[Rfam]
RNA sequence: UGCUGUGAAGUGAUGAGUUUUCAUGUCUCUUCUCUGACUGAUUAUCACUGGAGAGAGUCUGUAUACCUCUGAUCUCAGCC
Numbered sequence: 001u002g003c004u005g006u007g008a009a010g011u012g013a014u015g016a017g018u019u020u021u022c023a024u025g026u027c028u029c030u031u032c033u034c035u036g037a038c039u040g041a042u043u044a045u046c047a048c049u050g051g052a053g054a055g056a057g058u059c060u061g062u063a064u065a066c067c068u069c070u071g072a073u074c075u076c077a078g079c080c
Stems, first nucleotide, its partner, number of pairs: 002079004
Small nucleolar RNA SNORD111: an 80-nucleotide sequence from Anguilla anguilla. The literature on the family includes a 2001 paper in EMBO J by Huttenhofer et al., "RNomics: an experimental approach that identifies 201 candidates for novel, small, non-messenger RNAs in mouse". The family's RNA type in Rfam is C/D-box small nucleolar RNA. Pairs were carried over by alignment from the consensus structure, which was predicted with RNAalifold. Its family is annotated with nucleolus and RNA processing in the Gene Ontology.